[Rfam]
RNA sequence: UUAGUUUAAAUCAUUGUGGAACUACACUUUGGAAAUAUAACUCAUACAAAGUGGUGGAACAUACAUUGAUUUCAUCUAA
Numbered sequence: 001u002u003a004g005u006u007u008a009a010a011u012c013a014u015u016g017u018g019g020a021a022c023u024a025c026a027c028u029u030u031g032g033a034a035a036u037a038u039a040a041c042u043c044a045u046a047c048a049a050a051g052u053g054g055u056g057g058a059a060c061a062u063a064c065a066u067u068g069a070u071u072u073c074a075u076c077u078a079a
Base pairs, nucleotide, nucleotide: 001079002078003077004076006074008072009071010070011069012068013067015065016064017063018062022057023056024055025053026052027051028050029049030048031047
A member of the RNA family "MIR5269 microRNA precursor family" from Medicago truncatula, 79 nucleotides long. Gene Ontology terms of the family: miRNA-mediated post-transcriptional gene silencing and RISC complex. The family's consensus secondary structure was predicted with RNAalifold.